[Rfam]
RNA sequence: AUUUUUAUUUUUCCACAGCUUUCUUGAACUGCAUAUCUCAAUUCCUUCUUAUCCAGAUCCCUGUUGGGUGGAGACUGGAGAGAGAAAAAUAAAAUUCUGGGUUGUUGCGGUUCAAUAAAGCUGUGGGAAGAUACAGAUA
Numbered sequence: 001a002u003u004u005u006u007a008u009u010u011u012u013c014c015a016c017a018g019c020u021u022u023c024u025u026g027a028a029c030u031g032c033a034u035a036u037c038u039c040a041a042u043u044c045c046u047u048c049u050u051a052u053c054c055a056g057a058u059c060c061c062u063g064u065u066g067g068g069u070g071g072a073g074a075c076u077g078g079a080g081a082g083a084g085a086a087a088a089a090u091a092a093a094a095u096u097c098u099g100g101g102u103u104g105u106u107g108c109g110g111u112u113c114a115a116u117a118a119a120g121c122u123g124u125g126g127g128a129a130g131a132u133a134c135a136g137a138u139a
Base pairs, nucleotide, nucleotide: 003136004135006133007132013126014125015124017122018121019120020119021118022117024115025114026113027112029110030109031108032107033106
This 139-nucleotide RNA sequence from Carnegiea gigantea belongs to the Rfam family "MIR396 microRNA precursor family". The family has 26 seed sequences and 744 matches in Rfam 15.1. The family's consensus secondary structure was predicted with WAR. For this family Rfam cites "Computational identification of plant microRNAs and their targets, including a stress-induced miRNA" (Jones-Rhoades and Bartel, Mol Cell, 2004).